[Rfam]
RNA sequence: UAGAAAUACGGGCAAAGCUGAUGAAAAUCAGUGACGCAAAGCUAAAGGGGCUAAGAUACUUGAGUAAGGUAUUAUGCCAGCCAGUUGCCUUU
Numbered sequence: 001u002a003g004a005a006a007u008a009c010g011g012g013c014a015a016a017g018c019u020g021a022u023g024a025a026a027a028u029c030a031g032u033g034a035c036g037c038a039a040a041g042c043u044a045a046a047g048g049g050g051c052u053a054a055g056a057u058a059c060u061u062g063a064g065u066a067a068g069g070u071a072u073u074a075u076g077c078c079a080g081c082c083a084g085u086u087g088c089c090u091u092u
Stems, first nucleotide, its partner, number of pairs: 012037002017032006040086004047082002049078003056072006
RNA: c-di-GMP-I riboswitch aptamer